[Rfam]
RNA sequence: UUAAUAAGAUUGACCUUUCUGAAGAGGUAAUCACGAAGUUAGGAAACUUUAUCUCAUGGAGAGAGAAAGGUCUAAGGACAGAACUGCUUGGUAGGGAUCACCAACCCGGGGU
Numbered sequence: 001u002u003a004a005u006a007a008g009a010u011u012g013a014c015c016u017u018u019c020u021g022a023a024g025a026g027g028u029a030a031u032c033a034c035g036a037a038g039u040u041a042g043g044a045a046a047c048u049u050u051a052u053c054u055c056a057u058g059g060a061g062a063g064a065g066a067a068a069g070g071u072c073u074a075a076g077g078a079c080a081g082a083a084c085u086g087c088u089u090g091g092u093a094g095g096g097a098u099c100a101c102c103a104a105c106c107c108g109g110g111g112u
Base pairs, nucleotide, nucleotide: 008032009031010030011029013028014027015026016025017024018023036089037088038087047069048068049067050066052064053063054062055061070079071078072077090106091105092104094102095101